[Rfam]
Source information
Rfam assigns this 125-nucleotide RNA from Rubritalea squalenifaciens to the family "Y RNA-like". For this family Rfam cites "Structural Basis for tRNA Mimicry by a Bacterial Y RNA" (Wang et al., Structure, 2018). The family's consensus secondary structure is taken from published work. NCBI's taxonomy places the organism under Bacteria, Pseudomonadati, Verrucomicrobiota, Verrucomicrobiales, Rubritalea squalenifaciens. The family has 6 seed sequences and 124 matches in Rfam 15.1. From the family's description: In Deinococcus radiodurans Rsr is tethered via Y RNA to the exoribonuclease PNPase and channels single-stranded RNA into the PNPase cavity. Rsr and Y RNA enhance degradation of structured RNAs by PNPase.
RNA sequence: CUGGCGAAUGCCUUGAGGACUACAUUUAAUCUAUUGGUCGUUGGUUCGAGUCCAACCACAGCUCAAGCUGUGUAGCUCAGUUAGGUAGAGCAGUAGCACGUCUUCAUCAACCUUGUCGCCAUUCC
Number, nucleotide and partner (000 for none) at each position: 001c000002u121003g120004g119005c118006g117007a116008a000009u000010g000011c000012c000013u000014u106015g105016a104017g103018g102019a101020c000021u000022a000023c096024a000025u000026u000027u000028a000029a000030u000031c000032u000033a094034u093035u092036g000037g000038u000039c000040g056041u055042u054043g053044g052045u000046u000047c085048g000049a000050g000051u000052c044053c043054a042055a041056c040057c072058a071059c070060a069061g068062c067063u000064c000065a000066a000067g062068c061069u060070g059071u058072g057073u000074a000075g091076c090077u089078c088079a000080g000081u000082u000083a000084g000085g047086u000087a000088g078089a077090g076091c075092a035093g034094u033095a000096g023097c000098a000099c000100g000101u019102c018103u017104u016105c015106a014107u000108c000109a000110a000111c000112c000113u000114u000115g000116u007117c006118g005119c004120c003121a002122u000123u000124c000125c000